[Rfam]
RNA: TPP riboswitch aptamer (THI element)
RNA sequence: UAAUCACAUAUGGGGAGCUUAUGUACUAGGCUGAGAGGAAGUUGAGAACUUCGACCCACAAACCUGAUUUGGAUAAUGCCAACGUAGGGAUGUAUAAGGAACGAAUG
Numbered sequence: 001u002a003a004u005c006a007c008a009u010a011u012g013g014g015g016a017g018c019u020u021a022u023g024u025a026c027u028a029g030g031c032u033g034a035g036a037g038g039a040a041g042u043u044g045a046g047a048a049c050u051u052c053g054a055c056c057c058a059c060a061a062a063c064c065u066g067a068u069u070u071g072g073a074u075a076a077u078g079c080c081a082a083c084g085u086a087g088g089g090a091u092g093u094a095u096a097a098g099g100a101a102c103g104a105a106u107g
Stems, first nucleotide, its partner, number of pairs: 006095001008093003011058004017031005038052005063088004069082004